About this RNA
c-di-GMP-I riboswitch aptamer: an 87-nucleotide RNA from Thermanaeromonas sp. C210. GEMM was predicted in a large-scale screen for bacterial structured RNA regulatory elements. The match comes from Rfam's covariance-model search (85 bits).

RNA sequence: UCACGCAAAGGGCAAACCGCUCGAAAGGGCGGGACGCAAAGCCGUGGGCCUAAGGCCGGGGUAGGCUAUGGUUGCCAGGCUGCCGUG
Numbered sequence: 001u002c003a004c005g006c007a008a009a010g011g012g013c014a015a016a017c018c019g020c021u022c023g024a025a026a027g028g029g030c031g032g033g034a035c036g037c038a039a040a041g042c043c044g045u046g047g048g049c050c051u052a053a054g055g056c057c058g059g060g061g062u063a064g065g066c067u068a069u070g071g072u073u074g075c076c077a078g079g080c081u082g083c084c085g086u087g
Stems, first nucleotide, its partner, number of pairs: 012037002017032006040081004045077003048072003055066003
The family has 155 seed sequences and 5,092 matches in Rfam 15.1. The family's consensus secondary structure is taken from published work.